[Rfam]
RNA sequence: GCCCUUACCUGGCGCUGGGUCCAGGGUGAUCAAGAAUGCUCUGACCCCGGGUGGAGGCUCACCAGUGCACCUCGGUGGGUUGAAACUCGCAACGGACCCUAAUCGGGUGCGCUCGGGUGUGUAGUUUUUGUCAGUGGGGGGGGCCUCACGGUCCCCCCUU
Numbered sequence: 001g002c003c004c005u006u007a008c009c010u011g012g013c014g015c016u017g018g019g020u021c022c023a024g025g026g027u028g029a030u031c032a033a034g035a036a037u038g039c040u041c042u043g044a045c046c047c048c049g050g051g052u053g054g055a056g057g058c059u060c061a062c063c064a065g066u067g068c069a070c071c072u073c074g075g076u077g078g079g080u081u082g083a084a085a086c087u088c089g090c091a092a093c094g095g096a097c098c099c100u101a102a103u104c105g106g107g108u109g110c111g112c113u114c115g116g117g118u119g120u121g122u123a124g125u126u127u128u129u130g131u132c133a134g135u136g137g138g139g140g141g142g143g144c145c146u147c148a149c150g151g152u153c154c155c156c157c158c159u160u
Stems, first nucleotide, its partner, number of pairs: 012120004017047005023042005049088004056081003060077004090115001092113001093111001095108001097106002136159005142153004
RNA: U1 spliceosomal RNA